Source information
A member of the RNA family "M-box riboswitch aptamer (ykoK leader)" from Kitasatospora viridis, 176 nucleotides long. The literature on the family includes a 2010 paper in RNA Biol by Ramesh and Winkler, "Magnesium-sensing riboswitches in bacteria".
RNA sequence: AAGGCACCUCGUUCGGUGAGGCGUCUUCACGGACACAGGCCACUGAUCCCAACCGUCGAGAGACGCUCCGGAUCAGGACAGAUCUUCCCGACCUAAGGGUUGAUCCCAAGUGGCUUCCGGCCGUUGCGCUGGAUCACGCCGUGGAGUGCCAAAGCUCUGACGAGUUGGGGUGUACC
Numbered sequence: 001a002a003g004g005c006a007c008c009u010c011g012u013u014c015g016g017u018g019a020g021g022c023g024u025c026u027u028c029a030c031g032g033a034c035a036c037a038g039g040c041c042a043c044u045g046a047u048c049c050c051a052a053c054c055g056u057c058g059a060g061a062g063a064c065g066c067u068c069c070g071g072a073u074c075a076g077g078a079c080a081g082a083u084c085u086u087c088c089c090g091a092c093c094u095a096a097g098g099g100u101u102g103a104u105c106c107c108a109a110g111u112g113g114c115u116u117c118c119g120g121c122c123g124u125u126g127c128g129c130u131g132g133a134u135c136a137c138g139c140c141g142u143g144g145a146g147u148g149c150c151a152a153a154g155c156u157c158u159g160a161c162g163a164g165u166u167g168g169g170g171u172g173u174a175c176c
Stems, first nucleotide, its partner, number of pairs: 005172006011161002013096001015156003020150003025146008039114005045074005054065004081105004087099003116133005